[Rfam]
Manganese Mn2+ riboswitch aptamer (yybP-ykoY): a 106-nucleotide RNA sequence from Pseudomonas saudiphocaensis. It scores 54 bits against the family's covariance model. Taxonomically the source falls in Pseudomonas (Bacteria, Pseudomonadati, Gammaproteobacteria, Pseudomonadales). The pairing is the family consensus, mapped onto this sequence.
RNA sequence: GCGUCCGUCCUGGGGGAGUAGUCUCCGGCGAGCGCCCUGCUCGCCUGGCAUGCGUCAACAUACUUGGUCCACAGACCAUGGUGCAUGCGACCUGCGCGGCAGCAUC
Number, nucleotide and partner (000 for none) at each position: 001g000002c000003g000004u000005c000006c000007g000008u000009c000010c000011u000012g000013g000014g000015g000016g000017a000018g000019u000020a000021g000022u000023c000024u000025c000026c047027g046028g045029c000030g000031a000032g000033c000034g000035c000036c000037c000038u000039g000040c000041u000042c000043g000044c000045c028046u027047g026048g088049c087050a086051u085052g084053c083054g082055u081056c080057a079058a000059c000060a000061u000062a000063c000064u000065u078066g077067g076068u075069c074070c000071a000072c000073a000074g069075a068076c067077c066078a065079u057080g056081g055082u054083g053084c052085a051086u050087g049088c048089g000090a000091c000092c000093u000094g000095c000096g000097c000098g000099g000100c000101a000102g000103c000104a000105u000106c000